[Rfam]
Rfam assigns this 73-nucleotide sequence from Ferrimicrobium acidiphilum to the family "tRNA". Its Rfam clan is "tRNA clan". Gene Ontology term of the family: triplet codon-amino acid adaptor activity. Transfer RNA (tRNA) molecules are approximately 80 nucleotides in length. Their secondary structure includes four short double-helical elements and three loops (D, anti-codon, and T loops). Further hydrogen bonds mediate the characteristic L-shaped molecular structure. tRNAs have two regions of fundamental functional importance: the anti-codon, which is responsible for specific mRNA codon recognition, and the 3' end, to which the tRNAs corresponding amino acid is attached (by aminoacyl-tRNA synthetases). tRNAs cope with the degeneracy of the genetic code in two manners: having more than one tRNA (with a specific anti-codon) for a particular amino acid; and 'wobble' base-pairing, i.e. permitting non-standard base-pairing at the 3rd anti-codon position.

Nucleotides: 073
Base pairs, nucleotide, nucleotide: 001072002071003070004069005068006067007066010025011024012023013022027043028042029041030040031039049065050064051063052062053061
Number, partner (000 for none) and nucleotide at each position: 001072g002071u003070g004069a005068u006067c007066g008000u009000a010025g011024c012023u013022c014000a015000g016000u017000u018000g019000g020000u021000a022013g023012a024011g025010c026000g027043c028042c029041a030040g031039a032000u033000u034000g035000u036000g037000g038000c039031u040030c041029u042028g043027g044000a045000g046000g047000u048000c049065a050064g051063g052062g053061g054000u055000u056000c057000g058000a059000g060000c061053c062052c063051c064050c065049u066007c067006g068005g069004u070003c071002a072001c073000c